[Rfam]
RNA sequence: UUCGCAAGAUCUUUCAUAGCAGAAGUGUUCACGUUGCGACCCAUGUCAGGUACUACCUGGGAUACCUGCAAUUCUGCU
Numbered sequence: 001u002u003c004g005c006a007a008g009a010u011c012u013u014u015c016a017u018a019g020c021a022g023a024a025g026u027g028u029u030c031a032c033g034u035u036g037c038g039a040c041c042c043a044u045g046u047c048a049g050g051u052a053c054u055a056c057c058u059g060g061g062a063u064a065c066c067u068g069c070a071a072u073u074c075u076g077c078u
Stems, first nucleotide, its partner, number of pairs: 013043001014039002018078007025037003047068006
A member of the RNA family "Mammalian CPEB3 ribozyme" from Alligator sinensis, 78 nucleotides long. On this family, see Teixeira et al., Nature 2004: "Autocatalytic RNA cleavage in the human beta-globin pre-mRNA promotes transcription termination". The family's consensus secondary structure is taken from published work.